Nucleotides: 117
Base pairs, nucleotide, nucleotide: 010019011018012017021036022035023034024033025032026031047070048069049068050067051066053064054063073087074086075085076084104117105116106115107114108113
Number, partner (000 for none) and nucleotide at each position: 001000c002000u003000a004000u005000g006000g007000g008000u009000c010019a011018c012017c013000g014000c015000a016000a017012g018011g019010u020000u021036c022035c023034g024033g025032c026031a027000g028000c029000g030000a031026u032025g033024c034023c035022g036021g037000a038000c039000a040000u041000c042000a043000u044000u045000u046000g047070g048069c049068g050067g051066c052000u053064c054063g055000c056000c057000u058000c059000a060000c061000a062000g063054c064053g065000u066051g067050c068049u069048g070047c071000a072000a073087c074086c075085g076084g077000c078000c079000c080000g081000g082000g083000g084076c085075c086074g087073g088000g089000g090000a091000a092000u093000u094000g095000a096000a097000u098000c099000c100000g101000a102000a103000g104117g105116c106115c107114g108113g109000u110000g111000u112000g113108c114107c115106g116105g117104c
This 117-nucleotide sequence from Pseudomonas sp. URIL14HWK12:I9 belongs to the Rfam family "Pseudomon-groES RNA". Lineage of the source: Bacteria > Pseudomonadota > Gammaproteobacteria > Pseudomonadaceae > Pseudomonas.